Notes:
A member of the RNA family "ALIL pseudoknot" from Propioniciclava tarda, 132 nucleotides long. Taxonomically the source falls in Propioniciclava (Bacteria, Actinomycetes, Propionibacteriales, Propionibacteriaceae). For this family Rfam cites "Apical loop-internal loop RNA pseudoknots: a new type of stimulator of -1 translational frameshifting in bacteria" (Mazauric et al., J Biol Chem, 2008).
Nucleotides: 132
Stems, first nucleotide, its partner, number of pairs: 016032005078132005089127002092124003
Number, partner (000 for none) and nucleotide at each position: 001000c002000g003000c004000g005000u006000a007000u008000u009000u010000c011000g012000c013000a014000c015000a016032g017031g018030c019029g020028g021000a022000g023000c024000u025000c026000g027000a028020c029019c030018g031017c032016c033000u034000a035000c036000a037000a038000c039000g040000g041000u042000g043000a044000u045000c046000g047000u048000c049000g050000g051000c052000u053000u054000c055000a056000u057000c058000g059000a060000c061000g062000a063000g064000u065000a066000c067000c068000g069000u070000a071000g072000c073000c074000a075000g076000c077000a078132c079131g080130g081129g082128g083000u084000c085000g086000a087000g088000c089127c090126g091000a092124u093123c094122u095000g096000u097000c098000g099000g100000g101000u102000c103000c104000u105000c106000a107000g108000u109000g110000g111000c112000c113000a114000u115000g116000g117000c118000a119000u120000c121000a122094a123093g124092a125000u126090c127089g128082c129081c130080c131079c132078g
Description: A search with the family's covariance model found it, with a score of 86 bits. Its family is annotated with positive regulation of translational frameshifting in the Gene Ontology. It is annotated as a cis-regulatory element.